[Rfam]
RNA: Makes More Granules Regulator RNA (mmgR)
Organism: Caulobacter vibrioides
RNA sequence: AGCCUCUGCCCUUCCUGGGGCGUUUCCUCCCUACUUAUUUCAGCCCGGCUUUUCGCCGGGCUUUUCUUUUGGCGGU
Numbered sequence: 001a002g003c004c005u006c007u008g009c010c011c012u013u014c015c016u017g018g019g020g021c022g023u024u025u026c027c028u029c030c031c032u033a034c035u036u037a038u039u040u041c042a043g044c045c046c047g048g049c050u051u052u053u054c055g056c057c058g059g060g061c062u063u064u065u066c067u068u069u070u071g072g073c074g075g076u
Stems, first nucleotide, its partner, number of pairs: 008021004043061007